[Rfam]
RNA sequence: AGAAGGGUUCGACGGCGUAAAGCUCUAUCGAAAAUAAACCUUACAAGCAUAUUUUUGGGGACUGUCCCUGACAAUGGUGAGCAAGCUCAGCUCGUACUGAGAAGCCUAAAGUUGUUAUCAUGGUUACCCACCUUAGCUAAAACAGGUUUACUUUUUCAGAGUGGUCUUCGAGCCUUUUUU
Numbered sequence: 001a002g003a004a005g006g007g008u009u010c011g012a013c014g015g016c017g018u019a020a021a022g023c024u025c026u027a028u029c030g031a032a033a034a035u036a037a038a039c040c041u042u043a044c045a046a047g048c049a050u051a052u053u054u055u056u057g058g059g060g061a062c063u064g065u066c067c068c069u070g071a072c073a074a075u076g077g078u079g080a081g082c083a084a085g086c087u088c089a090g091c092u093c094g095u096a097c098u099g100a101g102a103a104g105c106c107u108a109a110a111g112u113u114g115u116u117a118u119c120a121u122g123g124u125u126a127c128c129c130a131c132c133u134u135a136g137c138u139a140a141a142a143c144a145g146g147u148u149u150a151c152u153u154u155u156u157c158a159g160a161g162u163g164g165u166c167u168u169c170g171a172g173c174c175u176u177u178u179u180u
Base pairs, nucleotide, nucleotide: 002178003177004176005175006174007173008172009171010170011169012168014166015165018163019162032154033153034152035150036149037148038147039146040145057129058128059127061124062123063122064121065120069117070116071115072114073113074112075111081105082104086101087100088099089098090097
RNA: 6S / SsrS RNA